[Rfam]
RNA sequence: CGGGGAAAGAAGACCCUGUUGAGCUUGACUCUAGUUUGACUUUGUGAAAUGGCUUAGAAGGUGUAGCAUAAGUGGGAGCUACGGCGAUCUUGAAAUACCACUACUUUUAAUGUCAUUUUACUUAUUCCGUUAUAUUGAGCCUCUUUUUUUUAUUAAAAGAGUUUUUGAUUUAAGGUAAUUUUUUUUAUUGCUGAUCUUCGCGGAAGACAUAGUCAGAUGGGGAGUUUGGCUGGGGCGGCACAUCUGUUAAAAGGUAACGCAGGUGUCCUAAGGUAAGCUCAAUGAGAACAGAAAUCUCAUGUAGACCAAAAGGGGAAAAGCUUACUUGAUUUUGAUUUUCAGUACGAAUACAAACUGUGAAAGCAUGGCCUAUCGAUCCUUUAGAUCUGUGAAAAUUACAGCUAGAGGUGUCAGAAAAGUUACCACAGGGAUAACUGGCUUGUGGCAGCCAAGCGUUCAUAGCGACGUUGCUUUUUGAUCCUUCGAUGUCGGCUCUUCCUAUCAUUGGGAUGCAGAAGUCCCAAAGUGUCGGAUUGUUCACCCGCUAAUAGGGAACGUGAGCUGGGUUUAGACCGUCGUGAGACAGGUUAGUUUUACCCU
Numbered sequence: 001c002g003g004g005g006a007a008a009g010a011a012g013a014c015c016c017u018g019u020u021g022a023g024c025u026u027g028a029c030u031c032u033a034g035u036u037u038g039a040c041u042u043u044g045u046g047a048a049a050u051g052g053c054u055u056a057g058a059a060g061g062u063g064u065a066g067c068a069u070a071a072g073u074g075g076g077a078g079c080u081a082c083g084g085c086g087a088u089c090u091u092g093a094a095a096u097a098c099c100a101c102u103a104c105u106u107u108u109a110a111u112g113u114c115a116u117u118u119u120a121c122u123u124a125u126u127c128c129g130u131u132a133u134a135u136u137g138a139g140c141c142u143c144u145u146u147u148u149u150u151u152a153u154u155a156a157a158a159g160a161g162u163u164u165u166u167g168a169u170u171u172a173a174g175g176u177a178a179u180u181u182u183u184u185u186u187a188u189u190g191c192u193g194a195u196c197u198u199c200g201c202g203g204a205a206g207a208c209a210u211a212g213u214c215a216g217a218u219g220g221g222g223a224g225u226u227u228g229g230c231u232g233g234g235g236c237g238g239c240a241c242a243u244c245u246g247u248u249a250a251a252a253g254g255u256a257a258c259g260c261a262g263g264u265g266u267c268c269u270a271a272g273g274u275a276a277g278c279u280c281a282a283u284g285a286g287a288a289c290a291g292a293a294a295u296c297u298c299a300u301g302u303a304g305a306c307c308a309a310a311a312g313g314g315g316a317a318a319a320g321c322u323u324a325c326u327u328g329a330u331u332u333u334g335a336u337u338u339u340c341a342g343u344a345c346g347a348a349u350a351c352a353a354a355c356u357g358u359g360a361a362a363g364c365a366u367g368g369c370c371u372a373u374c375g376a377u378c379c380u381u382u383a384g385a386u387c388u389g390u391g392a393a394a395a396u397u398a399c400a401g402c403u404a405g406a407g408g409u410g411u412c413a414g415a416a417a418a419g420u421u422a423c424c425a426c427a428g429g430g431a432u433a434a435c436u437g438g439c440u441u442g443u444g445g446c447a448g449c450c451a452a453g454c455g456u457u458c459a460u461a462g463c464g465a466c467g468u469u470g471c472u473u474u475u476u477g478a479u480c481c482u483u484c485g486a487u488g489u490c491g492g493c494u495c496u497u498c499c500u501a502u503c504a505u506u507g508g509g510a511u512g513c514a515g516a517a518g519u520c521c522c523a524a525a526g527u528g529u530c531g532g533a534u535u536g537u538u539c540a541c542c543c544g545c546u547a548a549u550a551g552g553g554a555a556c557g558u559g560a561g562c563u564g565g566g567u568u569u570a571g572a573c574c575g576u577c578g579u580g581a582g583a584c585a586g587g588u589u590a591g592u593u594u595u596a597c598c599c600u
Stems, first nucleotide, its partner, number of pairs: 003600003007595002015429004020425002022421005028225004035217007044121010054110007071102005078085002125205005137196002143159005174192005228241001229239003242264006267368002273325006279305002282300006306315002330354003335349004356365003379407006387401004438479001440477001442476001444472006453463002490565001491563004495557001496554005503528002506523006530544003534540001571589004575584003
RNA: Eukaryotic large subunit ribosomal RNA, nucleotides 2472 to 3071